[Rfam]
RNA sequence: GUGCAUCCAGUAGGAAUUGAACCUACGAGUUCGACAAUUAUGAGGUGGGUGCUUUGACCAUUCAAUUAUGGAUGC
Numbered sequence: 001g002u003g004c005a006u007c008c009a010g011u012a013g014g015a016a017u018u019g020a021a022c023c024u025a026c027g028a029g030u031u032c033g034a035c036a037a038u039u040a041u042g043a044g045g046u047g048g049g050u051g052c053u054u055u056g057a058c059c060a061u062u063c064a065a066u067u068a069u070g071g072a073u074g075c
Stems, first nucleotide, its partner, number of pairs: 003075006010026005040069003044066001046064006

A member of the RNA family "Plastid-ycf2 5UTR RNA" from Solanum lycopersicum, 75 nucleotides long. Rfam's curators write: Plastid ycf2 is a non-coding RNA (ncRNA) recognised in plastids. It was found in the prime untranslated region (5UTR) of ycf2 genes, it presents a tRNA-like motif which suggests it can be involved in mRNA maturation, particularly involved in defining the precise 5' end of the transcript. Taxonomically the source falls in Solanum subgen. Lycopersicon (Eukaryota, Gunneridae, asterids, lamiids).